[Rfam]
RNA sequence: AGUUGCAACAUCCCCGUGGACUGGGUGACGGUUUUUUAGUGAACCGCCGCAGCGAAUCCACUGCAACU
Dot-bracket structure: (((((((.....[[.(((((.((.(((.((((((......)))))).))).])]).))))))))))))
RNA: nadA riboswitch